[Rfam]
RNA: U5 spliceosomal RNA
RNA sequence: AGCCGUGCUGUGAGCACAGAGCGAACUAUUCUUUCGCCUUUUACUAAAGAAUACCGUGUGCUGGCCGCCUAAAGCGGCAUACGCCUAUUUUUGUAGGGUUGUUUCGUUACUGGAAU
Numbered sequence: 001a002g003c004c005g006u007g008c009u010g011u012g013a014g015c016a017c018a019g020a021g022c023g024a025a026c027u028a029u030u031c032u033u034u035c036g037c038c039u040u041u042u043a044c045u046a047a048a049g050a051a052u053a054c055c056g057u058g059u060g061c062u063g064g065c066c067g068c069c070u071a072a073a074g075c076g077g078c079a080u081a082c083g084c085c086u087a088u089u090u091u092u093g094u095a096g097g098g099u100u101g102u103u104u105c106g107u108u109a110c111u112g113g114a115a116u
Base pairs, nucleotide, nucleotide: 003077004076005075006074008067010065011064013062014061015060016059017058018057027053028052029051030050031049032048033047034046103115104114105113